RNA: mir-483 microRNA precursor family
RNA sequence: CGAGGGGAGGACGGGAGGAGAGGAGGGUGCGGUGUUUGCGGGUCCUCACUCCUCUCCUCCCGUCUUCUUCUUCC
Numbered sequence: 001c002g003a004g005g006g007g008a009g010g011a012c013g014g015g016a017g018g019a020g021a022g023g024a025g026g027g028u029g030c031g032g033u034g035u036u037u038g039c040g041g042g043u044c045c046u047c048a049c050u051c052c053u054c055u056c057c058u059c060c061c062g063u064c065u066u067c068u069u070c071u072u073c074c
Base pairs, nucleotide, nucleotide: 004070005069006068007067008066009065010064011063012062013061014060015059016058017057018056022054024053025052026051027050029049031047